[Rfam]
A member of the RNA family "MIR5269 microRNA precursor family" from Medicago truncatula, 80 nucleotides long. Its family is annotated with miRNA-mediated post-transcriptional gene silencing and RISC complex in the Gene Ontology.

RNA sequence: UUGGGUGAAAUCAAUAUAGAUCUUACACUUUAGAAAUAGAUCCCACAUAAAGUGAUGAGACUUGUAUUGAUUUCACAUAA
Numbered sequence: 001u002u003g004g005g006u007g008a009a010a011u012c013a014a015u016a017u018a019g020a021u022c023u024u025a026c027a028c029u030u031u032a033g034a035a036a037u038a039g040a041u042c043c044c045a046c047a048u049a050a051a052g053u054g055a056u057g058a059g060a061c062u063u064g065u066a067u068u069g070a071u072u073u074c075a076c077a078u079a080a
Stems, first nucleotide, its partner, number of pairs: 001080003005076014023058003026054007